[Rfam]
RNA sequence: UUAUUCAUAAAAAAGUUACUGAACUGUUUUGUCACUCUCUGUCAAAGAACAAAUUGUUCUCUGUCAGAGAGGGACAGAACAGUUCAAUAGAUAAUCCGUUCAGUAAC
Numbered sequence: 001u002u003a004u005u006c007a008u009a010a011a012a013a014a015g016u017u018a019c020u021g022a023a024c025u026g027u028u029u030u031g032u033c034a035c036u037c038u039c040u041g042u043c044a045a046a047g048a049a050c051a052a053a054u055u056g057u058u059c060u061c062u063g064u065c066a067g068a069g070a071g072g073g074a075c076a077g078a079a080c081a082g083u084u085c086a087a088u089a090g091a092u093a094a095u096c097c098g099u100u101c102a103g104u105a106a107c
Stems, first nucleotide, its partner, number of pairs: 001106005011095001014092001016090003020086008028068004033063002048058004